[Rfam]
RNA sequence: GUGCAAAUCGGCCUGAAACUUUUUUAUGUGUAUGCGAAUAUCCAUGGAAAGUACAUAUGCCUCUCGGCAUAGACAGGUAAGA
Dot-bracket structure: .................(((...(((((.((((....)))).)))))..)))...((((((....))))))...........
Shown here is an 82-nucleotide RNA from Bacteroides sp. CAG:189, a member of the family "Bacteroides-1 RNA". By type it is a small RNA.